Annotation
This 451-nucleotide part of an RNA from Trichogramma brassicae belongs to the Rfam family "Eukaryotic large subunit ribosomal RNA". It scores 2868 bits against the family's covariance model.
RNA sequence: GGCUCGUCGUUGCGAUAGUAAUACUGCUCAGUACGAGAGGAACCGCAGUUUCGGACAUUUGGUUCAUGCACUCGGCCGAGCGGCCGGUGGUGCGAAGCUACCAUCCGCGGGAUUAUGCCUGAACGCCUCUAAGGCCGAAGCCAGCCUAGCCGAAUCCGGCAAGGAUAUGCUCACUGUGGAGCCCCGAGAGUCGGGAGGCUCUAAACAAUGUGACUUUACUAGUCGCGCUUCACUCCGUGAGGUGCGACGUCGAAGCCCAUUUGGAUCGCGGAGAUCGGUGCAUACGGUUUAACACGUGCGCCACGGCUCCGAAGGUCCGAAUCUACCUCAGUUCGAUGUCGGGGCUCGGAAUAGUCUGUAGACGACUUCCGUUCCUGGCGGGGUGUUGUGCUCGGUAGAGCAGCGUCGUGCUGCGAUCUGUUGAGACUCAGCCCUACGCCAGGUGAUUCGU
Numbered sequence: 001g002g003c004u005c006g007u008c009g010u011u012g013c014g015a016u017a018g019u020a021a022u023a024c025u026g027c028u029c030a031g032u033a034c035g036a037g038a039g040g041a042a043c044c045g046c047a048g049u050u051u052c053g054g055a056c057a058u059u060u061g062g063u064u065c066a067u068g069c070a071c072u073c074g075g076c077c078g079a080g081c082g083g084c085c086g087g088u089g090g091u092g093c094g095a096a097g098c099u100a101c102c103a104u105c106c107g108c109g110g111g112a113u114u115a116u117g118c119c120u121g122a123a124c125g126c127c128u129c130u131a132a133g134g135c136c137g138a139a140g141c142c143a144g145c146c147u148a149g150c151c152g153a154a155u156c157c158g159g160c161a162a163g164g165a166u167a168u169g170c171u172c173a174c175u176g177u178g179g180a181g182c183c184c185c186g187a188g189a190g191u192c193g194g195g196a197g198g199c200u201c202u203a204a205a206c207a208a209u210g211u212g213a214c215u216u217u218a219c220u221a222g223u224c225g226c227g228c229u230u231c232a233c234u235c236c237g238u239g240a241g242g243u244g245c246g247a248c249g250u251c252g253a254a255g256c257c258c259a260u261u262u263g264g265a266u267c268g269c270g271g272a273g274a275u276c277g278g279u280g281c282a283u284a285c286g287g288u289u290u291a292a293c294a295c296g297u298g299c300g301c302c303a304c305g306g307c308u309c310c311g312a313a314g315g316u317c318c319g320a321a322u323c324u325a326c327c328u329c330a331g332u333u334c335g336a337u338g339u340c341g342g343g344g345c346u347c348g349g350a351a352u353a354g355u356c357u358g359u360a361g362a363c364g365a366c367u368u369c370c371g372u373u374c375c376u377g378g379c380g381g382g383g384u385g386u387u388g389u390g391c392u393c394g395g396u397a398g399a400g401c402a403g404c405g406u407c408g409u410g411c412u413g414c415g416a417u418c419u420g421u422u423g424a425g426a427c428u429c430a431g432c433c434c435u436a437c438g439c440c441a442g443g444u445g446a447u448u449c450g451u
Stems, first nucleotide, its partner, number of pairs: 006166003010162004016148003021051001023049005052107004060100003067094005072087006110142002117135004181345007349449004354370001358366001375442006381434003385427002393420003397417001400414005